[Rfam]
RNA: Potassium channel RNA editing signal
RNA sequence: GUGGGUUAUGGAGAUAUGUGCCCUGUGACCAUCGGAGGCAAGAUCGUGGGCUCGCUGUGCGCCAUCGCCGGUGUGCUCACCAUCGCGCUGCCGGUACCUGUGAUCGUGUCCAAC
Numbered sequence: 001g002u003g004g005g006u007u008a009u010g011g012a013g014a015u016a017u018g019u020g021c022c023c024u025g026u027g028a029c030c031a032u033c034g035g036a037g038g039c040a041a042g043a044u045c046g047u048g049g050g051c052u053c054g055c056u057g058u059g060c061g062c063c064a065u066c067g068c069c070g071g072u073g074u075g076c077u078c079a080c081c082a083u084c085g086c087g088c089u090g091c092c093g094g095u096a097c098c099u100g101u102g103a104u105c106g107u108g109u110c111c112a113a114c
Stems, first nucleotide, its partner, number of pairs: 001114002004111002007108005014101003018097004037077004049063003